[Rfam]
RNA sequence: ACCUUAUUUUGAAAGGUGGAGGGAUUGGGCCCUGCGAAACCUUGGCAACCCAUGUGCUUAUGGUGGGUGCCACGUCCUACUCUUUUUUAAAGAGGAAGAUAAGGA
Numbered sequence: 001a002c003c004u005u006a007u008u009u010u011g012a013a014a015g016g017u018g019g020a021g022g023g024a025u026u027g028g029g030c031c032c033u034g035c036g037a038a039a040c041c042u043u044g045g046c047a048a049c050c051c052a053u054g055u056g057c058u059u060a061u062g063g064u065g066g067g068u069g070c071c072a073c074g075u076c077c078u079a080c081u082c083u084u085u086u087u088u089a090a091a092g093a094g095g096a097a098g099a100u101a102a103g104g105a
Base pairs, nucleotide, nucleotide: 002104003103004102005101006100007099008098013043014042015041016040017039021032022031023030026079027078028077029076044071045070046069047068049067050066051065052064053063075097080094081093082092083091084090085089
A member of the RNA family "SAM riboswitch aptamer (S box leader)", 105 nucleotides long. The base pairs follow the family's consensus structure, which is taken from published work. Its family is annotated with regulation of gene expression in the Gene Ontology.